Annotation:
The record is a 79-nucleotide RNA from Gallus gallus, which matches "Small nucleolar RNA SNORD79" in Rfam. NCBI's taxonomy places the organism under Eukaryota, Bilateria, Craniata, Sauria, Gallus. snoRNA U79 or Z22 is found in intron 7 of the gas5 gene in humans and is also present in mice. Gene Ontology terms of the family: nucleolus and RNA processing. The base pairs follow the family's consensus structure, which was predicted with PFOLD. It is annotated as a C/D-box small nucleolar RNA. On this family, see Galardi et al., Mol Cell Biol 2002: "Purified box C/D snoRNPs are able to reproduce site-specific 2'-O-methylation of target RNA in vitro". The family is grouped with related families in Rfam's "SNORD74 clan".
[Rfam]
RNA sequence: UACUGUUCAUGAUGAUUAGUUCUACACAAUGGGAAUCUCUCUGAAAGAGACUGAGGAGGACUCUUGAUCUGAAACAGUA
Number, nucleotide and partner (000 for none) at each position: 001u079002a078003c077004u076005g075006u074007u073008c000009a000010u000011g000012a000013u000014g000015a000016u000017u000018a000019g000020u000021u000022c000023u000024a000025c000026a000027c000028a000029a000030u000031g000032g000033g000034a000035a000036u000037c000038u000039c000040u000041c000042u000043g000044a000045a000046a000047g000048a000049g000050a000051c000052u000053g000054a000055g000056g000057a000058g000059g000060a000061c000062u000063c000064u000065u000066g000067a000068u000069c000070u000071g000072a000073a007074a006075c005076a004077g003078u002079a001